[Rfam]
RNA sequence: AAGACCGUACUUACACAUGAUCAUUUCUAUAGUACCUUCUUUUCUACUUGACUUUCCUCGUAGACAACCUCAAUAACUUUGAUGAUCGUAUUCGACUUCAUUCAUUGACUCGGGAUGUUGGUGGUGUAGUGCUGUGUUCUCUUUGCUUUUGAACUCGGCCUCCCCCAUUGAUGAACGUCCGCUGUCGCUAUUCCAAGGCAGCGUGAGUGAGUGGAGUGAUAUGAGAAGU
Number, nucleotide and partner (000 for none) at each position: 001a041002a040003g039004a038005c000006c000007g035008u034009a033010c032011u031012u000013a000014c000015a000016c000017a028018u000019g026020a025021u000022c000023a000024u000025u020026u019027c000028u017029a000030u000031a011032g010033u009034a008035c007036c000037u000038u004039c003040u002041u001042u000043u000044c000045u000046a000047c000048u000049u066050g065051a000052c000053u000054u063055u062056c000057c000058u000059c000060g000061u000062a055063g054064a000065c050066a049067a000068c000069c000070u000071c000072a000073a000074u000075a000076a229077c228078u227079u226080u225081g000082a000083u000084g000085a000086u000087c000088g000089u000090a000091u000092u000093c000094g000095a217096c216097u215098u214099c213100a212101u211102u210103c209104a208105u207106u206107g000108a000109c000110u000111c177112g176113g000114g000115a000116u000117g000118u000119u000120g166121g165122u000123g163124g000125u000126g160127u000128a000129g000130u000131g000132c000133u000134g000135u000136g154137u153138u152139c151140u000141c000142u000143u000144u000145g000146c000147u000148u000149u000150u000151g139152a138153a137154c136155u000156c000157g000158g000159c000160c126161u000162c000163c123164c000165c121166c120167a000168u000169u000170g000171a000172u000173g000174a000175a000176c112177g111178u000179c205180c203181g202182c201183u200184g199185u198186c197187g000188c000189u000190a000191u000192u000193c000194c000195a000196a000197g186198g185199c184200a183201g182202c181203g180204u000205g179206a106207g105208u104209g103210a102211g101212u100213g099214g098215a097216g096217u095218g000219a000220u000221a000222u000223g000224a000225g080226a079227a078228g077229u076
RNA: Small nucleolar RNA U3